[Rfam]
RNA: Small nucleolar RNA SNORA57
RNA sequence: CCUCAUUUUCUUGACAGGAACUAGGCAUGUAGUCCUACUCCCUGUUAUGUACAGAGGCAAAGGGAAGAGCUCCGGCCCCCCUUGGCAUGUCUUUGGUGCCAUGCAGCUUCCUGUCUGCCAGUUCUAUCCUCAAGCACCAGGACACCA
Dot-bracket structure: ((((..........((((.(.((((........)))).).)))).........))))........................(((..............(...((((........))))..).............))..)........